[Rfam]
RNA sequence: GCUUGUAUAAACCAACAUAACGGGUUGGUGUUUCUACAAUUAGACCGAUCUAAUUACUAUAAGU
Numbered sequence: 001g002c003u004u005g006u007a008u009a010a011a012c013c014a015a016c017a018u019a020a021c022g023g024g025u026u027g028g029u030g031u032u033u034c035u036a037c038a039a040u041u042a043g044a045c046c047g048a049u050c051u052a053a054u055u056a057c058u059a060u061a062a063g064u
Base pairs, nucleotide, nucleotide: 001064002063003062004061005060006059007058008036011029012028013027014026015025016024022046023045030037038055039054040053041052042051043050044049
2dG-I riboswitch aptamer (M. florum): a 64-nucleotide sequence from Williamsoniiplasma luminosum.
The organism belongs to Williamsoniiplasma, within Bacteria.
On this family, see Kim et al., Proc Natl Acad Sci U S A 2007: "Guanine riboswitch variants from Mesoplasma florum selectively recognize 2'-deoxyguanosine".
The family has 4 seed sequences and 24 matches in Rfam 15.1.
Its family is annotated with deoxyribonucleoside binding and regulation of DNA-templated transcription, termination in the Gene Ontology.